[Rfam]
RNA sequence: UUACAAUCAAUCAAUUCUACCAACUCUUCUGAAGAUCAUUUUUUGUGGUUUAUCCCUCAACCAAACAAUCAACAUGUCUCCCUGCUCUUGCUCUUCCUGCUCUUGCUCCGGCAACUGCAACUCUUGCUCCUGCACCAGCUGCGGCGUAUGUUCCC
Numbered sequence: 001u002u003a004c005a006a007u008c009a010a011u012c013a014a015u016u017c018u019a020c021c022a023a024c025u026c027u028u029c030u031g032a033a034g035a036u037c038a039u040u041u042u043u044u045g046u047g048g049u050u051u052a053u054c055c056c057u058c059a060a061c062c063a064a065a066c067a068a069u070c071a072a073c074a075u076g077u078c079u080c081c082c083u084g085c086u087c088u089u090g091c092u093c094u095u096c097c098u099g100c101u102c103u104u105g106c107u108c109c110g111g112c113a114a115c116u117g118c119a120a121c122u123c124u125u126g127c128u129c130c131u132g133c134a135c136c137a138g139c140u141g142c143g144g145c146g147u148a149u150g151u152u153c154c155c
Stems, first nucleotide, its partner, number of pairs: 083113004097105001117142003126133002

Source information:
Rfam assigns this 155-nucleotide RNA sequence from Penicillium chermesinum to the family "A. fumigatus sRNA Afu_254". It scores 74 bits against the family's covariance model. It is annotated as a small RNA. NCBI's taxonomy places the organism under Eukaryota, Fungi, Eurotiomycetidae, Eurotiales, Penicillium. For this family Rfam cites "Small ncRNA transcriptome analysis from Aspergillus fumigatus suggests a novel mechanism for regulation of protein synthesis" (Jochl et al., Nucleic Acids Res, 2008).